[Rfam]
RNA sequence: AAAGGGGCAAUAACCCAUUUCUUGAGAGAACAAGAAGUUGGUUAUUGCCCCUUUA
Numbered sequence: 001a002a003a004g005g006g007g008c009a010a011u012a013a014c015c016c017a018u019u020u021c022u023u024g025a026g027a028g029a030a031c032a033a034g035a036a037g038u039u040g041g042u043u044a045u046u047g048c049c050c051c052u053u054u055a
Stems, first nucleotide, its partner, number of pairs: 001054014019036006
Dot-bracket structure: ((((((((((((((....((((((......))))))....)))))))))))))).
A member of the RNA family "Plastid-psbA-3 3UTR RNA", 55 nucleotides long. It is annotated as a cis-regulatory element. Pairs were carried over by alignment from the consensus structure, which was predicted with LocARNA. The family is grouped with related families in Rfam's "Plastid-psbA 3UTR RNA clan". The literature on the family includes a 2023 paper in Plant Commun by Richter et al., "Retrograde signaling in plants: A critical review focusing on the GUN pathway and beyond". It is one of the family's seed sequences. About the family: Plastid psbA-3 is a non-coding RNA (ncRNA) present in plastids. It was identified in inverted repeat sequences in the 3 prime untranslate region (3UTR) of photosystem II quinone-binding protein (psbA).